[Rfam]
RNA: mir-204 microRNA precursor family
Organism: Scleropages formosus
RNA sequence: AUGUGGCCUGUGGGCUUCCCUUUGUCAUCCUAUGCCUGAGGAUAUAAAAUGGGGGCUGGGAAGGCAAAGGGACGUUUGCUUGCCAUCAUC
Numbered sequence: 001a002u003g004u005g006g007c008c009u010g011u012g013g014g015c016u017u018c019c020c021u022u023u024g025u026c027a028u029c030c031u032a033u034g035c036c037u038g039a040g041g042a043u044a045u046a047a048a049a050u051g052g053g054g055g056c057u058g059g060g061a062a063g064g065c066a067a068a069g070g071g072a073c074g075u076u077u078g079c080u081u082g083c084c085a086u087c088a089u090c
Stems, first nucleotide, its partner, number of pairs: 017072006024065002028061005034056004